[Rfam]
Record summary
Rfam assigns this 99-nucleotide sequence from Caenorhabditis nigoni to the family "mir-36 microRNA precursor family". It scores 66 bits against the family's covariance model. For this family Rfam cites "The microRNAs of Caenorhabditis elegans" (Lim et al., Genes Dev, 2003). The family has 46 seed sequences and 199 matches in Rfam 15.1.

RNA sequence: UUAUUUCAACGGUCUGGACCUCCGCUGGUUUCCUCUGCGGUGAUACUCCAAAACAAGGUUAUCACCGGGUAAAAACUGGUAGAGGUCUGAUCUAGUCAG
Numbered sequence: 001u002u003a004u005u006u007c008a009a010c011g012g013u014c015u016g017g018a019c020c021u022c023c024g025c026u027g028g029u030u031u032c033c034u035c036u037g038c039g040g041u042g043a044u045a046c047u048c049c050a051a052a053a054c055a056a057g058g059u060u061a062u063c064a065c066c067g068g069g070u071a072a073a074a075a076c077u078g079g080u081a082g083a084g085g086u087c088u089g090a091u092c093u094a095g096u097c098a099g
Stems, first nucleotide, its partner, number of pairs: 015089007024080008035069002038067001040065006